[Rfam]
RNA sequence: AGAAAAAUGCCCAGCCAGCCCUCAGUUGCUACAGCCCUCUAUUGUUUCAGCUCAACAACAACACGGGGCUGUAGCAGUGGGGGCUGGAUGGGCAUCUCAAU
Numbered sequence: 001a002g003a004a005a006a007a008u009g010c011c012c013a014g015c016c017a018g019c020c021c022u023c024a025g026u027u028g029c030u031a032c033a034g035c036c037c038u039c040u041a042u043u044g045u046u047u048c049a050g051c052u053c054a055a056c057a058a059c060a061a062c063a064c065g066g067g068g069c070u071g072u073a074g075c076a077g078u079g080g081g082g083g084c085u086g087g088a089u090g091g092g093c094a095u096c097u098c099a100a101u
Stems, first nucleotide, its partner, number of pairs: 006097001007095007015087009025078014040063001042061005047055001
Dot-bracket structure: .....((((((((.(((((((((.((((((((((((((.(.((((((.......).))))).).))))))))))))))))))))))).))))))).)....